[Rfam]
RNA sequence: AACGUGCUCCGGGGUCAGCGAAACUCUGAGCCGGCGGUGACAGUCCGCGACCCGUGAUCCUCUUCGGAGGUGAGCGGUUGACCUGGUGGAAUUCCGGGACCGACGGUGAAAGUCCGGAUGGGAGGCGCACGUU
Numbered sequence: 001a002a003c004g005u006g007c008u009c010c011g012g013g014g015u016c017a018g019c020g021a022a023a024c025u026c027u028g029a030g031c032c033g034g035c036g037g038u039g040a041c042a043g044u045c046c047g048c049g050a051c052c053c054g055u056g057a058u059c060c061u062c063u064u065c066g067g068a069g070g071u072g073a074g075c076g077g078u079u080g081a082c083c084u085g086g087u088g089g090a091a092u093u094c095c096g097g098g099a100c101c102g103a104c105g106g107u108g109a110a111a112g113u114c115c116g117g118a119u120g121g122g123a124g125g126c127g128c129a130c131g132u133u
Stems, first nucleotide, its partner, number of pairs: 003131005009125002016028003030113002032102002034048004043100002052077004082098005104116003
Dot-bracket structure: ..(((((.((.....(((.......))).[[((((((.....[[))))...((((..................))))....(((((.......)))))]])).(((.....]]))).......)).)))))..
Shown here is a 133-nucleotide RNA from Yimella sp. RIT 621, a member of the family "FMN riboswitch aptamer (RFN element)".
The family has 146 seed sequences and 6,230 matches in Rfam 15.1.